[Rfam]
RNA sequence: AAAAUUAAGGAGCAAUAAAUUCUCUUGAUAGAACAAGAAAGAGUUUAUUGCUCCUUAA
Numbered sequence: 001a002a003a004a005u006u007a008a009g010g011a012g013c014a015a016u017a018a019a020u021u022c023u024c025u026u027g028a029u030a031g032a033a034c035a036a037g038a039a040a041g042a043g044u045u046u047a048u049u050g051c052u053c054c055u056u057a058a
Stems, first nucleotide, its partner, number of pairs: 006057012020041001023038005
The family of this 58-nucleotide RNA sequence is "Plastid-psbA-4 3UTR RNA". Its Rfam clan is "Plastid-psbA 3UTR RNA clan". On this family, see Richter et al., Plant Commun 2023: "Retrograde signaling in plants: A critical review focusing on the GUN pathway and beyond".